RNA sequence: ACAAGAACAACAAAAAUCAGUCACCCGAAACACCAACAUAAUAAAAACAAGACGAAUCGACUCACGCAUAACAAGAACAACACGGCGGAGGCGCAGCUAACUGAUUCUUUUGGAGAGGCGUUGCAUUUGGGACUUGUCCCGCAACCAGGCCGAGAACAACAAAAACUACCCUUAGGUAGAGCCUGAACUGGUUGGAUCGACAGAUCACUGCCGCACAGCGACCAAAGCAAUCCGUUUGCUCUUGACUCCCGAUUGGGAGGUUUCACAGGCGAAAGCCGUGAAUUGGGCGGUCAACAAAAAUAAAAAGCCCAUCAGACAAUAAAAAUAAGAGCACGCACUUUGGGGGAGCUUCGGCUCCCCCAGUAGCAUCCGCACUAAACCCCUCUCCUGCUCGA
Numbered sequence: 001a002c003a004a005g006a007a008c009a010a011c012a013a014a015a016a017u018c019a020g021u022c023a024c025c026c027g028a029a030a031c032a033c034c035a036a037c038a039u040a041a042u043a044a045a046a047a048c049a050a051g052a053c054g055a056a057u058c059g060a061c062u063c064a065c066g067c068a069u070a071a072c073a074a075g076a077a078c079a080a081c082a083c084g085g086c087g088g089a090g091g092c093g094c095a096g097c098u099a100a101c102u103g104a105u106u107c108u109u110u111u112g113g114a115g116a117g118g119c120g121u122u123g124c125a126u127u128u129g130g131g132a133c134u135u136g137u138c139c140c141g142c143a144a145c146c147a148g149g150c151c152g153a154g155a156a157c158a159a160c161a162a163a164a165a166c167u168a169c170c171c172u173u174a175g176g177u178a179g180a181g182c183c184u185g186a187a188c189u190g191g192u193u194g195g196a197u198c199g200a201c202a203g204a205u206c207a208c209u210g211c212c213g214c215a216c217a218g219c220g221a222c223c224a225a226a227g228c229a230a231u232c233c234g235u236u237u238g239c240u241c242u243u244g245a246c247u248c249c250c251g252a253u254u255g256g257g258a259g260g261u262u263u264c265a266c267a268g269g270c271g272a273a274a275g276c277c278g279u280g281a282a283u284u285g286g287g288c289g290g291u292c293a294a295c296a297a298a299a300a301u302a303a304a305a306a307g308c309c310c311a312u313c314a315g316a317c318a319a320u321a322a323a324a325a326u327a328a329g330a331g332c333a334c335g336c337a338c339u340u341u342g343g344g345g346g347a348g349c350u351u352c353g354g355c356u357c358c359c360c361c362a363g364u365a366g367c368a369u370c371c372g373c374a375c376u377a378a379a380c381c382c383c384u385c386u387c388c389u390g391c392u393c394g395a
Stems, first nucleotide, its partner, number of pairs: 058093002061090003108227005122220003142194007166179005245261003249257001279377002284374001285310004329369001331367002342361008
A member of the RNA family "Pseudomonas sRNA CrcZ" from Pseudomonas graminis, 395 nucleotides long. Rfam classes the family as a small RNA. Taxonomically the source falls in Pseudomonas (Bacteria, Pseudomonadota, Pseudomonadales, Pseudomonadaceae). It scores 323 bits against the family's covariance model. For this family Rfam cites "Identification of 17 Pseudomonas aeruginosa sRNAs and prediction of sRNA-encoding genes in 10 diverse pathogens using the bioinformatic tool sRNAPredict2" (Livny et al., Nucleic Acids Res, 2006).